[Rfam]
RNA sequence: GGCGCGGCCGUGCCAACCGGACACGGCGGAGAUGGAGAACGCAGGGAUUUUUCCGGUUUCUUCCUGCGGCCAACGAAACGGCAGUCGAGCUCCUUUACCCGUCCGGCCU
Numbered sequence: 001g002g003c004g005c006g007g008c009c010g011u012g013c014c015a016a017c018c019g020g021a022c023a024c025g026g027c028g029g030a031g032a033u034g035g036a037g038a039a040c041g042c043a044g045g046g047a048u049u050u051u052u053c054c055g056g057u058u059u060c061u062u063c064c065u066g067c068g069g070c071c072a073a074c075g076a077a078a079c080g081g082c083a084g085u086c087g088a089g090c091u092c093c094u095u096u097a098c099c100c101g102u103c104c105g106g107c108c109u
Stems, first nucleotide, its partner, number of pairs: 006108004011023002014020001025103005034093004040068007069082003
Rfam assigns this 109-nucleotide RNA from Mycoplana azooxidifex to the family "Rhizobiales sRNA Atu_At1".
The source organism's lineage runs through Bacteria, Pseudomonadati, Pseudomonadota, Alphaproteobacteria and Mycoplana.
It scores 104 bits against the family's covariance model.
Rfam classes the family as a small RNA.